This 103-nucleotide sequence from Gossypium gossypioides belongs to the Rfam family "Small nucleolar RNA snoR99". Pairs were carried over by alignment from the consensus structure, which was predicted with WAR. For this family Rfam cites "Experimental RNomics: identification of 140 candidates for small non-messenger RNAs in the plant Arabidopsis thaliana" (Marker et al., Curr Biol, 2002). Its family is annotated with RNA processing and nucleolus in the Gene Ontology. The family's RNA type in Rfam is H/ACA-box small nucleolar RNA. The source organism's lineage runs through Eukaryota, Streptophyta, Spermatophyta, malvids and Gossypium.
Nucleotides: 103
Base pairs, nucleotide, nucleotide: 038096039095040094041093042092054083055082056081058079059078061076
Number, partner (000 for none) and nucleotide at each position: 001000g002000u003000g004000a005000u006000u007000u008000a009000u010000g011000g012000a013000u014000g015000a016000a017000c018000u019000g020000g021000u022000u023000c024000c025000u026000g027000a028000u029000a030000c031000c032000u033000a034000a035000u036000a037000g038096c039095c040094a041093u042092u043000u044000g045000a046000a047000u048000u049000a050000c051000u052000u053000a054083g055082u056081c057000u058079g059078u060000u061076g062000c063000c064000u065000c066000u067000c068000u069000u070000g071000g072000u073000g074000a075000c076061u077000u078059a079058u080000u081056g082055a083054u084000c085000a086000u087000u088000a089000u090000g091000g092042g093041a094040u095039g096038g097000a098000a099000c100000a101000c102000g103000c